A member of the RNA family "PyrR binding site" from Paenibacillus beijingensis, 201 nucleotides long. This family represents the PyrR binding site and terminator structure. This RNA structure is found upstream of a variety of genes involved in pyrimidine biosynthesis and transport. The alignment also includes a portion of the antiterminator structure. A reference for the family is Bonner et al. (2001), "Molecular recognition of pyr mRNA by the Bacillus subtilis attenuation regulatory protein PyrR", Nucleic Acids Res. The family's RNA type in Rfam is cis-regulatory element. The match comes from Rfam's covariance-model search (58 bits).

RNA sequence: AGUACCUUUAACUCAGUCCCGAGAGGCUGGCAAGGUAGCGUGAAUAAUAGGCCGAUGAUGCGGCCGGGCAGAACGAUCCUCCUUCACAUUGAAGCGCGGCUUAGACCGCUGUAUUCAGACAGGCUGAUGGAGGGGGCGGCCCGGCUUUCGGAUCAUCGCGUCUGGAAGCUCCUUGCUGUUAGCGGCAAGGAGCUUUUUUUG
Dot-bracket structure: ..((((((....((((((......)))))).))))))............(..(((((((............................................................................................)))))))..)..((((((((((((((......))))))))))))))....
Numbered sequence: 001a002g003u004a005c006c007u008u009u010a011a012c013u014c015a016g017u018c019c020c021g022a023g024a025g026g027c028u029g030g031c032a033a034g035g036u037a038g039c040g041u042g043a044a045u046a047a048u049a050g051g052c053c054g055a056u057g058a059u060g061c062g063g064c065c066g067g068g069c070a071g072a073a074c075g076a077u078c079c080u081c082c083u084u085c086a087c088a089u090u091g092a093a094g095c096g097c098g099g100c101u102u103a104g105a106c107c108g109c110u111g112u113a114u115u116c117a118g119a120c121a122g123g124c125u126g127a128u129g130g131a132g133g134g135g136g137c138g139g140c141c142c143g144g145c146u147u148u149c150g151g152a153u154c155a156u157c158g159c160g161u162c163u164g165g166a167a168g169c170u171c172c173u174u175g176c177u178g179u180u181a182g183c184g185g186c187a188a189g190g191a192g193c194u195u196u197u198u199u200u201g
Stems, first nucleotide, its partner, number of pairs: 003037006013030006050161001053158007164197014